[Rfam]
RNA sequence: GAAACUCUGGAAAGUGGCCGUCAGGCCCGCCGAAGGAUACGAAGAUCUCAGGCAACCGCGACAGAGGGGGCUUA
Numbered sequence: 001g002a003a004a005c006u007c008u009g010g011a012a013a014g015u016g017g018c019c020g021u022c023a024g025g026c027c028c029g030c031c032g033a034a035g036g037a038u039a040c041g042a043a044g045a046u047c048u049c050a051g052g053c054a055a056c057c058g059c060g061a062c063a064g065a066g067g068g069g070g071c072u073u074a
Stems, first nucleotide, its partner, number of pairs: 005066005016027004029053003032049002036047003
A member of the RNA family "Glycine riboswitch aptamer" from Tessaracoccus bendigoensis, 74 nucleotides long. The source organism's lineage runs through Bacteria, Bacillati, Actinomycetes, Tessaracoccus and Tessaracoccus bendigoensis. Rfam describes the family as follows. This family represents the bacterial glycine riboswitch. Glycine riboswitches usually consist of two metabolite-binding aptamers domains with similar structures in tandem. The aptamers cooperatively bind glycine to regulate the expression of downstream genes. In Bacillus subtilis, this riboswitch is found upstream of the gcvT operon which controls glycine degradation. The pairing is the family consensus, mapped onto this sequence.